[Rfam]
RNA sequence: UCCCGUGAAGGCGAUGGAGUCCGCCUAAACCGCCUCGGACGCGAGGCUGAUGGCUCCUACCCAGAC
Dot-bracket structure: .........[[[[..((((((]]]]......((((((....))))))....)))))).........

Shown here is a 66-nucleotide RNA sequence from bacterium HR32, a member of the family "Fluoride riboswitch aptamer (crcB RNA motif)". Gene Ontology terms of the family: positive regulation of gene expression and response to fluoride.